[Rfam]
RNA sequence: CUUCAGCGAGCCCAGCCGCAGCGGGGCCGACUCGCCGCGCUCGCGCCCGUAGGUGGCGAGCAGCGCCUGGGCCUC
Numbered sequence: 001c002u003u004c005a006g007c008g009a010g011c012c013c014a015g016c017c018g019c020a021g022c023g024g025g026g027c028c029g030a031c032u033c034g035c036c037g038c039g040c041u042c043g044c045g046c047c048c049g050u051a052g053g054u055g056g057c058g059a060g061c062a063g064c065g066c067c068u069g070g071g072c073c074u075c
Stems, first nucleotide, its partner, number of pairs: 015027003031071003038065002047056003